This 153-nucleotide sequence from Amborella trichopoda belongs to the Rfam family "MIR8565 microRNA precursor family".
The match comes from Rfam's covariance-model search (137 bits).
Its family is annotated with RISC complex and miRNA-mediated post-transcriptional gene silencing in the Gene Ontology.
[Rfam]
RNA sequence: CCCACACCCAUGUCUAUAGGAUCCCAAAGGAUCACCAUUAAAUUUGGUACAAAUAUUUAGAAAAGUUAUUACAUAGGUGUGAGAUUUGACUUUUUUAAAGAUCUGUAUCAAAUUUAAUGGUGAUCCUUGGAGUCCUACACACAUGGGUGUGGG
Numbered sequence: 001c002c003c004a005c006a007c008c009c010a011u012g013u014c015u016a017u018a019g020g021a022u023c024c025c026a027a028a029g030g031a032u033c034a035c036c037a038u039u040a041a042a043u044u045u046g047g048u049a050c051a052a053a054u055a056u057u058u059a060g061a062a063a064a065g066u067u068a069u070u071a072c073a074u075a076g077g078u079g080u081g082a083g084a085u086u087u088g089a090c091u092u093u094u095u096u097a098a099a100g101a102u103c104u105g106u107a108u109c110a111a112a113u114u115u116a117a118u119g120g121u122g123a124u125c126c127u128u129g130g131a132g133u134c135c136u137a138c139a140c141a142c143a144u145g146g147g148u149g150u151g152g153g
Stems, first nucleotide, its partner, number of pairs: 002152012015139001017137006024130004030125003034121018053102002056099013069082005